[Rfam]
A member of the RNA family "Eukaryotic large subunit ribosomal RNA" from Leucoagaricus sp. SymC.cos, 490 nucleotides of a longer RNA. A search with the family's covariance model found it, with a score of 3004 bits. The base pairs follow the family's consensus structure, which is taken from published work.

RNA sequence: CCUGCCGAAGUUUCCCUCAGGAUAGCAGAAACUCAUAUCAGAUUUAUGUGGUAAAGCGAAUGAUUAGAGGCCUUGGGGUUGAAACAACCUUAACCUAUUCUCAAACUUUAAAUAUGUAAGAACAAGCCAUUUCUUGACUGAACCACUCAGCGAUUGAGAGUUUCUAGUGGGCCAUUUUUGGUAAGCAGAACUGGCGAUGUGGGAUGAACUGAACAUGAGGUUAAGGUGCCAGAAUUCAUGCUCAUCAGACACCACAAAAGGUGUUAGUUCAUCUAGACAGCAGGACGGUGGCCAUGGAAGUCAGAAUCCACUAAGGAGUGUGUAACAACUCACCUGCUGAAUGAACUAGCCCUGAAAAUAGAUGGUGCUUAAGUGUGAUACCCAUACCUUGCCAUCAGCAUUGAAGUGAUGUGCUGAUGAGUAGGCAGGCAUGGAGGUCAGUGAAGAAGCCUUGGCAGUGAUGCUGGGUGAAAUGGCCUCUAGUGCAGAU
Number, nucleotide and partner (000 for none) at each position: 001c429002c428003u427004g426005c425006c424007g000008a000009a000010g000011u024012u000013u022014c021015c020016c000017u000018c000019a000020g015021g014022a013023u000024a011025g000026c000027a165028g164029a163030a162031a161032c160033u159034c000035a000036u000037a000038u000039c000040a000041g000042a000043u120044u119045u118046a117047u116048g115049u114050g000051g000052u000053a000054a109055a107056g106057c000058g000059a000060a000061u103062g102063a101064u000065u000066a098067g000068a096069g095070g094071c000072c000073u093074u092075g091076g090077g089078g088079u000080u086081g000082a000083a000084a000085c000086a080087a000088c078089c077090u076091u075092a074093a073094c070095c069096u068097a000098u066099u000100c000101u063102c062103a061104a000105a000106c056107u055108u000109u054110a000111a000112a000113u000114a049115u048116g047117u046118a045119a044120g043121a000122a000123c000124a000125a147126g146127c000128c000129a000130u142131u141132u000133c000134u000135u000136g000137a000138c000139u000140g000141a131142a130143c000144c000145a000146c126147u125148c000149a000150g000151c000152g000153a000154u000155u000156g000157a000158g000159a033160g032161u031162u030163u029164c028165u027166a000167g000168u000169g000170g000171g195172c194173c193174a192175u000176u190177u189178u188179u187180g186181g000182u000183a000184a000185g000186c180187a179188g178189a177190a176191c000192u174193g173194g172195c171196g000197a000198u000199g000200u211201g210202g209203g000204a000205u000206g000207a000208a000209c202210u201211g200212a000213a000214c000215a000216u391217g390218a389219g388220g000221u386222u000223a000224a000225g382226g381227u380228g000229c000230c000231a000232g000233a000234a379235u000236u378237c000238a000239u375240g374241c373242u000243c000244a000245u000246c000247a000248g000249a000250c000251a000252c000253c000254a000255c000256a000257a000258a000259a353260g352261g351262u000263g350264u349265u348266a347267g346268u345269u344270c343271a342272u341273c000274u000275a000276g000277a000278c000279a000280g337281c336282a335283g334284g333285a000286c000287g309288g308289u000290g000291g000292c304293c000294a000295u000296g000297g000298a000299a000300g000301u000302c000303a000304g292305a000306a000307u000308c288309c287310a000311c315312u000313a000314a000315g311316g331317a000318g000319u000320g329321u328322g000323u000324a000325a000326c000327a000328a321329c320330u000331c316332a000333c284334c283335u282336g281337c280338u000339g000340a000341a272342u271343g270344a269345a268346c267347u266348a265349g264350c263351c261352c260353u259354g000355a000356a000357a000358a000359u000360a000361g000362a000363u000364g000365g000366u000367g000368c000369u000370u000371a000372a000373g241374u240375g239376u000377g000378a236379u234380a227381c226382c225383c000384a000385u000386a221387c000388c219389u218390u217391g216392c000393c419394a418395u417396c416397a415398g414399c413400a412401u411402u000403g000404a000405a000406g000407u000408g000409a000410u000411g401412u400413g399414c398415u397416g396417a395418u394419g393420a000421g000422u000423a000424g006425g005426c004427a003428g002429g001430c485431a000432u482433g481434g480435a479436g478437g477438u476439c475440a000441g474442u473443g000444a000445a000446g000447a000448a000449g469450c468451c000452u000453u000454g000455g464456c463457a462458g000459u000460g000461a000462u457463g456464c455465u000466g000467g000468g450469u449470g000471a000472a000473a442474u441475g439476g438477c437478c436479u435480c434481u433482a432483g000484u000485g430486c000487a000488g000489a000490u000